[Rfam]
RNA sequence: UAACUAACCUAGUGAUAGGUUAUUGAACAGUCAGAAGUCAGCAGAGGUCAUAGUACAAAUAAGGUAGUUCCUCAUUUGGAAGGAC
Dot-bracket structure: ((..(((((((....))))))).))............((....)).(((......(((((.............)))))....)))
Numbered sequence: 001u002a003a004c005u006a007a008c009c010u011a012g013u014g015a016u017a018g019g020u021u022a023u024u025g026a027a028c029a030g031u032c033a034g035a036a037g038u039c040a041g042c043a044g045a046g047g048u049c050a051u052a053g054u055a056c057a058a059a060u061a062a063g064g065u066a067g068u069u070c071c072u073c074a075u076u077u078g079g080a081a082g083g084a085c
Stems, first nucleotide, its partner, number of pairs: 001025002005022007038045002047085003056078005